A member of the RNA family "c-di-GMP-I riboswitch aptamer" from Acetobacterium paludosum, 85 nucleotides long. The match comes from Rfam's covariance-model search (66 bits). Pairs were carried over by alignment from the consensus structure, which is taken from published work. The family is grouped with related families in Rfam's "c-di-GMP_I riboswitch clan". Lineage of the source: Bacteria > Bacillati > Bacillota > Eubacteriaceae > Acetobacterium.
[Rfam]
RNA sequence: UUAAAUAUUUAGCAUACUUAUCGAAAGGUAAGGACGCAAAGCUUAAGGGUCUAAGUAAUUUUUUAUAUGACAGCCAGUUGCGAAU
Numbered sequence: 001u002u003a004a005a006u007a008u009u010u011a012g013c014a015u016a017c018u019u020a021u022c023g024a025a026a027g028g029u030a031a032g033g034a035c036g037c038a039a040a041g042c043u044u045a046a047g048g049g050u051c052u053a054a055g056u057a058a059u060u061u062u063u064u065a066u067a068u069g070a071c072a073g074c075c076a077g078u079u080g081c082g083a084a085u
Stems, first nucleotide, its partner, number of pairs: 012037002017032006040079004047075002049071003056065003